[Rfam]
Shown here is a 297-nucleotide sequence from Bombyx mori, a member of the family "Metazoan signal recognition particle RNA".

RNA sequence: ACUGGGAGUUUGGCACCUCCUGUAAUCCGGCUACCCGGAGGUUGGGUACGGAGGAUGGUUUGAGGUCGGGACUCACUGGCGCUGAGUGGCCCAUGUUGACUGGACGUCCGCACUAAGCCUGGUGUUAAUAUGGACUCCCCGGAGGAGUCUGGGAAGUGCAGGUUAACUAAGGAGGGGCGAACCGGGCCAGGGGGGAAACCCAGCAGCCAAAAGUCCCCGCAUCGGGCAGUAGUGGGAUAGCGGCCGGGAGUGGGCGCUCAGUGACAGCCCGACCAAUAUAAUCAGACCCGUUCCUUU
Numbered sequence: 001a002c003u004g005g006g007a008g009u010u011u012g013g014c015a016c017c018u019c020c021u022g023u024a025a026u027c028c029g030g031c032u033a034c035c036c037g038g039a040g041g042u043u044g045g046g047u048a049c050g051g052a053g054g055a056u057g058g059u060u061u062g063a064g065g066u067c068g069g070g071a072c073u074c075a076c077u078g079g080c081g082c083u084g085a086g087u088g089g090c091c092c093a094u095g096u097u098g099a100c101u102g103g104a105c106g107u108c109c110g111c112a113c114u115a116a117g118c119c120u121g122g123u124g125u126u127a128a129u130a131u132g133g134a135c136u137c138c139c140c141g142g143a144g145g146a147g148u149c150u151g152g153g154a155a156g157u158g159c160a161g162g163u164u165a166a167c168u169a170a171g172g173a174g175g176g177g178c179g180a181a182c183c184g185g186g187c188c189a190g191g192g193g194g195g196a197a198a199c200c201c202a203g204c205a206g207c208c209a210a211a212a213g214u215c216c217c218c219g220c221a222u223c224g225g226g227c228a229g230u231a232g233u234g235g236g237a238u239a240g241c242g243g244c245c246g247g248g249a250g251u252g253g254g255c256g257c258u259c260a261g262u263g264a265c266a267g268c269c270c271g272a273c274c275a276a277u278a279u280a281a282u283c284a285g286a287c288c289c290g291u292u293c294c295u296u297u
Base pairs, nucleotide, nucleotide: 001042002041003040004021005020006019007018008017010015026039027038028037044295045294046293048291049290050289051288056284057283058282059281060280064274065273066272067271068270069269070268076267077266078265080263081262082261083260084259085258086257087256088255090254091253092252093251094250096248100247101246102245103244105242106241107240108236109235111234112233113232114231115230117227118226119225120224121223122222123221124220125219126165127164128163129162131160132159134157135156136155138153139152140151141150142149143148167171174217175216176215177214178213185208186207187206192201193200194199
Description: The family has 91 seed sequences and 383,523 matches in Rfam 15.1. Taxonomically the source falls in Bombyx (Eukaryota, Bilateria, Lepidoptera, Obtectomera). Rfam links the family to the GO terms signal recognition particle, endoplasmic reticulum targeting and SRP-dependent cotranslational protein targeting to membrane, signal sequence recognition. It is annotated as a non-coding RNA gene. A search with the family's covariance model found it, with a score of 259 bits.